[Rfam]
RNA sequence: AAAAAGGGUGCGUGGCAAACAUUUUCUGUUAAAUGCUACACGAUCAAUUACGAUCGUGCAGAAUCGUCAUCAAGAGAUUUUGCGCACAUAAUUUUUAAGGGGUCAUAUGGGCGGCCGUCUGGCUUCGUCUUUGAGCUGACGCCGCCCCC
Numbered sequence: 001a002a003a004a005a006g007g008g009u010g011c012g013u014g015g016c017a018a019a020c021a022u023u024u025u026c027u028g029u030u031a032a033a034u035g036c037u038a039c040a041c042g043a044u045c046a047a048u049u050a051c052g053a054u055c056g057u058g059c060a061g062a063a064u065c066g067u068c069a070u071c072a073a074g075a076g077a078u079u080u081u082g083c084g085c086a087c088a089u090a091a092u093u094u095u096u097a098a099g100g101g102g103u104c105a106u107a108u109g110g111g112c113g114g115c116c117g118u119c120u121g122g123c124u125u126c127g128u129c130u131u132u133g134a135g136c137u138g139a140c141g142c143c144g145c146c147c148c149c
Stems, first nucleotide, its partner, number of pairs: 008087005013038005039058007059082007110146005116141004

About this RNA: A member of the RNA family "U11 spliceosomal RNA" from Ambispora gerdemannii, 149 nucleotides long. The family's RNA type in Rfam is spliceosomal small nuclear RNA. Clan: U1 clan. The literature on the family includes a 1988 paper in Proc Natl Acad Sci U S A by Montzka and Steitz, "Additional low-abundance human small nuclear ribonucleoproteins: U11, U12, etc". The match comes from Rfam's covariance-model search (77 bits).